Record summary: Ruegeria cis52 sRNA: a 178-nucleotide RNA sequence from Sedimentitalea arenosa. Pairs were carried over by alignment from the consensus structure, which was predicted with RNAfold. On this family, see Rivers et al., Front Microbiol 2016: "Experimental Identification of Small Non-Coding RNAs in the Model Marine Bacterium Ruegeria pomeroyi DSS-3". Rfam classes the family as a small RNA. A search with the family's covariance model found it, with a score of 118 bits.

RNA sequence: GCGCAAGGCGUGCUUCAGAACGAUGUUGGGGAAGCUGACCCCUUUCAGCCGCGCGGUGCGGAUGUACUGCGCCGUCAUCACCUCGGUCAUGCUGGCCCGCGUCAUUCGCGCGAUAUAGCCCAUUCCGUAGAGCGAGAUCGUCAGCACCGGCAGGAAGAAAUUCUCGAAAUUCGCGUUC
Dot-bracket structure: ...(.(..(((.(((..(((......((((........(.(...(.(..((.(((((((((.....))))))))......((...........))).))..).)...).)........))))))).).)).)))...).)...(.(.(((..((((....))))......)))..).)
Numbered sequence: 001g002c003g004c005a006a007g008g009c010g011u012g013c014u015u016c017a018g019a020a021c022g023a024u025g026u027u028g029g030g031g032a033a034g035c036u037g038a039c040c041c042c043u044u045u046c047a048g049c050c051g052c053g054c055g056g057u058g059c060g061g062a063u064g065u066a067c068u069g070c071g072c073c074g075u076c077a078u079c080a081c082c083u084c085g086g087u088c089a090u091g092c093u094g095g096c097c098c099g100c101g102u103c104a105u106u107c108g109c110g111c112g113a114u115a116u117a118g119c120c121c122a123u124u125c126c127g128u129a130g131a132g133c134g135a136g137a138u139c140g141u142c143a144g145c146a147c148c149g150g151c152a153g154g155a156a157g158a159a160a161u162u163c164u165c166g167a168a169a170u171u172c173g174c175g176u177u178c
Stems, first nucleotide, its partner, number of pairs: 004140001006138001009134003013130002015127001018125003027122004039110001041108001045104001047102001050099002053096001054074008081095002144178001146176001148173003153164004